[Rfam]
RNA sequence: CUGUGGGAGAAAAGGCUACUGUGGCUGGUGUUGUACAGAGAAGCCAGCUUGUUUACAUGCCCUCCCACUG
Numbered sequence: 001c002u003g004u005g006g007g008a009g010a011a012a013a014g015g016c017u018a019c020u021g022u023g024g025c026u027g028g029u030g031u032u033g034u035a036c037a038g039a040g041a042a043g044c045c046a047g048c049u050u051g052u053u054u055a056c057a058u059g060c061c062c063u064c065c066c067a068c069u070g
Base pairs, nucleotide, nucleotide: 001070003068004067005066006065007064014061015060016059018053020051023049024048025047026046027045028044029043030036031035
Shown here is a 70-nucleotide RNA from Geotrypetes seraphini, a member of the family "MAT2A 3'UTR stem loop F". The match comes from Rfam's covariance-model search (53 bits). Rfam 15.1 lists 403 matches to the family in 255 species. Lineage of the source: Eukaryota > Vertebrata > Teleostomi > Euteleostomi > Geotrypetes.